The record is a 52-nucleotide RNA sequence from Diceros bicornis, which matches "mir-1302 microRNA precursor family" in Rfam. The match comes from Rfam's covariance-model search (64 bits). Rfam links the family to the GO terms miRNA-mediated post-transcriptional gene silencing and RISC complex. A reference for the family is Morin et al. (2008), "Application of massively parallel sequencing to microRNA profiling and discovery in human embryonic stem cells", Genome Res. Lineage of the source: Eukaryota > Vertebrata > Gnathostomata > Dipnotetrapodomorpha > Diceros bicornis.
RNA sequence: UUUUUAAUAUAAGUAUGCCCCAGGUAAUAUUUGGGACAUACUUAUGCUUAAA
Numbered sequence: 001u002u003u004u005u006a007a008u009a010u011a012a013g014u015a016u017g018c019c020c021c022a023g024g025u026a027a028u029a030u031u032u033g034g035g036a037c038a039u040a041c042u043u044a045u046g047c048u049u050a051a052a
Stems, first nucleotide, its partner, number of pairs: 006048001008046005014040003019035003022031001